The family of this 117-nucleotide RNA sequence from Lathyrus oleraceus is "Small nucleolar RNA Z107/R87". The family's consensus secondary structure was predicted with RNAfold. On this family, see Barneche et al., J Mol Biol 2001: "Identification of 66 box C/D snoRNAs in Arabidopsis thaliana: extensive gene duplications generated multiple isoforms predicting new ribosomal RNA 2'-O-methylation sites". NCBI's taxonomy places the organism under Eukaryota, Embryophyta, eudicotyledons, fabids, Lathyrus. Its family is annotated with nucleolus and RNA processing in the Gene Ontology.
RNA sequence: GAUCACAGUGAUGACCACAUAAAAUUCAAGCUCAACAGACCGGAAUGCAGGGUUCCUCUCUCUCUCUCUAUUGGGAGGAUACUUUGCGUGUCGAUAACCCCGCUGAACUGAGUGAUC
Numbered sequence: 001g002a003u004c005a006c007a008g009u010g011a012u013g014a015c016c017a018c019a020u021a022a023a024a025u026u027c028a029a030g031c032u033c034a035a036c037a038g039a040c041c042g043g044a045a046u047g048c049a050g051g052g053u054u055c056c057u058c059u060c061u062c063u064c065u066c067u068c069u070a071u072u073g074g075g076a077g078g079a080u081a082c083u084u085u086g087c088g089u090g091u092c093g094a095u096a097a098c099c100c101c102g103c104u105g106a107a108c109u110g111a112g113u114g115a116u117c
Stems, first nucleotide, its partner, number of pairs: 001117006